Rfam assigns this 73-nucleotide sequence from Paraburkholderia sp. DHOC27 to the family "Fluoride riboswitch aptamer (crcB RNA motif)". NCBI's taxonomy places the organism under Bacteria, Pseudomonadati, Betaproteobacteria, Burkholderiales, Paraburkholderia. A search with the family's covariance model found it, with a score of 46 bits. Its family is annotated with response to fluoride and positive regulation of gene expression in the Gene Ontology.
RNA sequence: UUAGAAGACGGAGAUGGCAUUCUCCUGCUCUUCUCAAGUGCUGGCCUCGCCAGCUGAUGAUGCCUACAUCGUC
Numbered sequence: 001u002u003a004g005a006a007g008a009c010g011g012a013g014a015u016g017g018c019a020u021u022c023u024c025c026u027g028c029u030c031u032u033c034u035c036a037a038g039u040g041c042u043g044g045c046c047u048c049g050c051c052a053g054c055u056g057a058u059g060a061u062g063c064c065u066a067c068a069u070c071g072u073c
Stems, first nucleotide, its partner, number of pairs: 010025004016064006040054004